[Rfam]
Mason-Pfizer monkey virus packaging signal: a 276-nucleotide sequence from Nannospalax galili. A reference for the family is Mustafa et al. (2004), "Mutational analysis of the predicted secondary RNA structure of the Mason-Pfizer monkey virus packaging signal", Virus Res. This family represents a group of sequences that are related to the Mason-Pfizer monkey virus (MPMV) packaging signal. The packaging signal is located in the 5' UTR and is required for specific RNA encapsidation.

RNA sequence: UGGCACCCAACAUGGGGCUGGACACUGAGGAUCCAGUGAGGGAAGACGACGUCGCAAAGGAACGCAUUCAAGAAGGAUUUUUCACUCUGGACUCGCCACGGGAACCUGCCUUGGCUAAAACCAGAAGUAAGUACAGACGUCUGAUUAUGGGACAAAAAUUAAGCUGGCAUCAACUUCAUGUUAAGCAAUUAAAAGAAGCCUUAAAGACAUGAGGGGUAAAGGUUAAAACUAUGGAUUUGUUUCAUUUCUUUGAUUUUGUAAAGGACACUUGUCCCU
Numbered sequence: 001u002g003g004c005a006c007c008c009a010a011c012a013u014g015g016g017g018c019u020g021g022a023c024a025c026u027g028a029g030g031a032u033c034c035a036g037u038g039a040g041g042g043a044a045g046a047c048g049a050c051g052u053c054g055c056a057a058a059g060g061a062a063c064g065c066a067u068u069c070a071a072g073a074a075g076g077a078u079u080u081u082u083c084a085c086u087c088u089g090g091a092c093u094c095g096c097c098a099c100g101g102g103a104a105c106c107u108g109c110c111u112u113g114g115c116u117a118a119a120a121c122c123a124g125a126a127g128u129a130a131g132u133a134c135a136g137a138c139g140u141c142u143g144a145u146u147a148u149g150g151g152a153c154a155a156a157a158a159u160u161a162a163g164c165u166g167g168c169a170u171c172a173a174c175u176u177c178a179u180g181u182u183a184a185g186c187a188a189u190u191a192a193a194a195g196a197a198g199c200c201u202u203a204a205a206g207a208c209a210u211g212a213g214g215g216g217u218a219a220a221g222g223u224u225a226a227a228a229c230u231a232u233g234g235a236u237u238u239g240u241u242u243c244a245u246u247u248c249u250u251u252g253a254u255u256u257u258g259u260a261a262a263g264g265a266c267a268c269u270u271g272u273c274c275c276u
Base pairs, nucleotide, nucleotide: 006030007029013024014023035052036047037046084128085127086126087124088123093119097113098112100110101109136153140151141150142149143148160203161202162201163199164198165197210252211251212250213249214248215247216246220238221237222236223235224234261276263274264273265272266271